[Rfam]
RNA sequence: CUUAAUUCUCACAAACUGCCGAAGACAGUAGGUGCCGUAAUGGCAUAAGGUGAGACCGCCUACCGAGGAAUAGAUUAAUCAAGCUAAUAUGCUAGACUAAUAAUCUGUCUCCUGUUUUCGCAGGAGGCAGUUUUUUUUAUUCCGU
Dot-bracket structure: ...........................(((((((((.....))).............)))))).........................................((((((((((......))))))))))...............
Numbered sequence: 001c002u003u004a005a006u007u008c009u010c011a012c013a014a015a016c017u018g019c020c021g022a023a024g025a026c027a028g029u030a031g032g033u034g035c036c037g038u039a040a041u042g043g044c045a046u047a048a049g050g051u052g053a054g055a056c057c058g059c060c061u062a063c064c065g066a067g068g069a070a071u072a073g074a075u076u077a078a079u080c081a082a083g084c085u086a087a088u089a090u091g092c093u094a095g096a097c098u099a100a101u102a103a104u105c106u107g108u109c110u111c112c113u114g115u116u117u118u119c120g121c122a123g124g125a126g127g128c129a130g131u132u133u134u135u136u137u138u139a140u141u142c143c144g145u
Stems, first nucleotide, its partner, number of pairs: 028063006034044003105130010
Rfam assigns this 145-nucleotide sequence from Lachnoclostridium phytofermentans to the family "Ribosomal protein L10 leader". It is annotated as a cis-regulatory leader. Rfam's curators put it in the seed alignment. The base pairs follow the family's consensus structure, which was predicted with CMfinder. From the family's description: This family is a putative r-protein leader autoregulatory structure found in B. subtilis and other low-GC Gram-positive bacteria. It is located in the 5' untranslated regions of mRNAs encoding ribosomal proteins L10 and L12 (rplJ-rplL). A Rho-independent transcription terminator structure that is probably involved in regulation is included at the 3' end.